RNA sequence: GAGAUGCCUUUAUGGGGCAAGACUUGUUUCAGUGGGGCUUUGGUGCUCACUGAGUCUGCUCCCUGAGUGUGUCCCU
Numbered sequence: 001g002a003g004a005u006g007c008c009u010u011u012a013u014g015g016g017g018c019a020a021g022a023c024u025u026g027u028u029u030c031a032g033u034g035g036g037g038c039u040u041u042g043g044u045g046c047u048c049a050c051u052g053a054g055u056c057u058g059c060u061c062c063c064u065g066a067g068u069g070u071g072u073c074c075c076u
Stems, first nucleotide, its partner, number of pairs: 001075001003073005009067004014062006021056003029053008037044002
The record is a 76-nucleotide RNA sequence from Myotis lucifugus, which matches "mir-9229 microRNA precursor family" in Rfam. Gene Ontology terms of the family: miRNA-mediated post-transcriptional gene silencing and RISC complex.